Source information
The family of this 163-nucleotide RNA sequence from Virgisporangium aurantiacum is "c-di-AMP riboswitch aptamer (ydaO/yuaA leader)". Rfam describes the family as follows. This family represents a conserved RNA structure found upstream of the ydaO and yuaA genes in Bacillus subtilis and related genes in other bacteria. Lineage of the source: Bacteria > Bacillati > Actinomycetes > Micromonosporales > Virgisporangium. A search with the family's covariance model found it, with a score of 74 bits.

RNA sequence: UCUUGUGCGGCGCCCGAGACAUGGGGGCGUUUCACCGAGCCGGGGAACCACCGGCCGUCUCCACCACGGAGAUGGUCAGGGGUGAAUCCGCAGCACCUUGCGGUAGGGCCGCCUUCCCGCCCGAACCCGUCAGCUAACCCGGUAGGCGUCGGAUGAAGGGCAC
Number, nucleotide and partner (000 for none) at each position: 001u038002c037003u000004u000005g000006u000007g000008c000009g000010g000011c000012g000013c000014c000015c000016g000017a000018g000019a000020c000021a000022u000023g000024g000025g000026g000027g000028c000029g000030u000031u000032u000033c000034a000035c000036c000037g002038a001039g143040c142041c141042g140043g139044g138045g000046a000047a000048c000049c079050a000051c000052c000053g000054g000055c000056c000057g000058u000059c000060u000061c000062c000063a000064c000065c000066a000067c000068g000069g000070a000071g000072a000073u000074g000075g000076u000077c000078a000079g049080g128081g127082g126083u000084g000085a000086a000087u000088c103089c102090g101091c100092a000093g000094c000095a000096c000097c000098u000099u000100g091101c090102g089103g088104u000105a000106g122107g121108g120109c119110c000111g000112c000113c000114u000115u000116c000117c000118c000119g109120c108121c107122c106123g000124a000125a000126c082127c081128c080129g000130u000131c000132a000133g000134c000135u000136a000137a000138c044139c043140c042141g041142g040143u039144a000145g000146g000147c000148g000149u000150c000151g000152g000153a000154u000155g000156a000157a000158g000159g000160g000161c000162a000163c000